[Rfam]
RNA: MIR2670 microRNA precursor family
Organism: Medicago truncatula
RNA sequence: UUGGGGUAAAAUGGUGAGUAGUCUUCUUGGGGAAAAUACAUCAUCAACCCAUGGGCUAAAUUUAAAUAUGGUUUUUUUUAUACCCCAAGAAGAAUCUUUUUACCUAUGAUAAAAAGUUUUUGGGGUAAAAAAAAGCAGAUUUAAACUUAUCCCAAAGGUUGAUCACUUCCCCAAGUCGGCUACUCACUAUUUUACCCCUG
Numbered sequence: 001u002u003g004g005g006g007u008a009a010a011a012u013g014g015u016g017a018g019u020a021g022u023c024u025u026c027u028u029g030g031g032g033a034a035a036a037u038a039c040a041u042c043a044u045c046a047a048c049c050c051a052u053g054g055g056c057u058a059a060a061u062u063u064a065a066a067u068a069u070g071g072u073u074u075u076u077u078u079u080a081u082a083c084c085c086c087a088a089g090a091a092g093a094a095u096c097u098u099u100u101u102a103c104c105u106a107u108g109a110u111a112a113a114a115a116g117u118u119u120u121u122g123g124g125g126u127a128a129a130a131a132a133a134a135g136c137a138g139a140u141u142u143a144a145a146c147u148u149a150u151c152c153c154a155a156a157g158g159u160u161g162a163u164c165a166c167u168u169c170c171c172c173a174a175g176u177c178g179g180c181u182a183c184u185c186a187c188u189a190u191u192u193u194a195c196c197c198c199u200g
Stems, first nucleotide, its partner, number of pairs: 003198021026175009043163007052154004057149003062144006069137002072134007081127008096116007104108001